[Rfam]
RNA sequence: GGCAGGGGUUUGUAUCCAGGCUUUCGGUUCUUCGGGAGAUUCCCGGAGGCAGACUUAGAUAUAAGGAACCGUUACGGAGAAGCAUAGUGAGCAAUCCAUAAUGAUACAGCCC
Numbered sequence: 001g002g003c004a005g006g007g008g009u010u011u012g013u014a015u016c017c018a019g020g021c022u023u024u025c026g027g028u029u030c031u032u033c034g035g036g037a038g039a040u041u042c043c044c045g046g047a048g049g050c051a052g053a054c055u056u057a058g059a060u061a062u063a064a065g066g067a068a069c070c071g072u073u074a075c076g077g078a079g080a081a082g083c084a085u086a087g088u089g090a091g092c093a094a095u096c097c098a099u100a101a102u103g104a105u106a107c108a109g110c111c112c
Stems, first nucleotide, its partner, number of pairs: 007112002010109007025071004029049007054065004076097003082092002
Source information:
Rfam assigns this 112-nucleotide RNA to the family "DUF3268 RNA". The family's RNA type in Rfam is small RNA.